Small nucleolar RNA Z266: a 102-nucleotide sequence from Ceratodon purpureus. It is annotated as a C/D-box small nucleolar RNA.

[Rfam]
RNA sequence: GCUGGGCGGGGAUGAGGACUUCAAUUAGAUGUGCGAGAUGGUUUCACCGUCGCUGAUCUUAAAAACUUGAGGCAUAAUCCAUUCUUAACUGACCUGUCCAGG
Dot-bracket structure: .(((((((((..................................................................................))))))))).